Rfam assigns this 99-nucleotide RNA from Desulfosporosinus orientis to the family "SAM riboswitch aptamer (S box leader)".
From the family's description: The SAM riboswitch is found upstream of a number of genes which code for proteins involved in methionine or cysteine biosynthesis in Gram-positive bacteria.
Lineage of the source: Bacteria > Eubacteriales > Desulfitobacteriaceae > Desulfosporosinus > Desulfosporosinus orientis.
A search with the family's covariance model found it, with a score of 80 bits.

RNA sequence: CUCUUAUUCAGAGUAGGUGGAGGGACUGGCCCGAUGAAACCCGGCAACCGGCAUUUAUGCACGGUGCUAACUCCUGCAGAGAAAUCUGGGAGAUAAGAG
Numbered sequence: 001c002u003c004u005u006a007u008u009c010a011g012a013g014u015a016g017g018u019g020g021a022g023g024g025a026c027u028g029g030c031c032c033g034a035u036g037a038a039a040c041c042c043g044g045c046a047a048c049c050g051g052c053a054u055u056u057a058u059g060c061a062c063g064g065u066g067c068u069a070a071c072u073c074c075u076g077c078a079g080a081g082a083a084a085u086c087u088g089g090g091a092g093a094u095a096a097g098a099g
Base pairs, nucleotide, nucleotide: 001099002098003097004096005095006094007093008092013042016041017040018039022032023031024030026076028074029073043068044067045066046065048064049063051060052059053058072091077088078087079086080085